[Rfam]
Small nucleolar RNA SNORA68: a 133-nucleotide RNA sequence from Sphenodon punctatus. It is annotated as an H/ACA-box small nucleolar RNA. The source organism's lineage runs through Eukaryota, Eumetazoa, Teleostomi, Sphenodontidae and Sphenodon. It scores 91 bits against the family's covariance model. Rfam's curators write: U68 is a member of the H/ACA class of small nucleolar RNAs (snoRNAs) which act as guides in the the modification of uridines to pseudouridines. Its family is annotated with RNA processing and nucleolus in the Gene Ontology.

RNA sequence: AGUGCACACAAAACCCAAAGGACAUUAUUUUGAUUAAUAAAAUGUUCUUGUCAUGUGUGCAGAUAUCAUAUGUACCAUGUCGCCUUUCAGGAGCUGAAGUGCUUUUGAAAGUGAAACUGAAGGUCCUACAUAC
Numbered sequence: 001a002g003u004g005c006a007c008a009c010a011a012a013a014c015c016c017a018a019a020g021g022a023c024a025u026u027a028u029u030u031u032g033a034u035u036a037a038u039a040a041a042a043u044g045u046u047c048u049u050g051u052c053a054u055g056u057g058u059g060c061a062g063a064u065a066u067c068a069u070a071u072g073u074a075c076c077a078u079g080u081c082g083c084c085u086u087u088c089a090g091g092a093g094c095u096g097a098a099g100u101g102c103u104u105u106u107g108a109a110a111g112u113g114a115a116a117c118u119g120a121a122g123g124u125c126c127u128a129c130a131u132a133c
Stems, first nucleotide, its partner, number of pairs: 003061007020047006026039004072126001074124003078120001084111011
Dot-bracket structure: ..(((((((..........((((((((((......))))..)))))).......)))))))..........(.(((.(.....(((((((((((......)))))))))))........).))).).......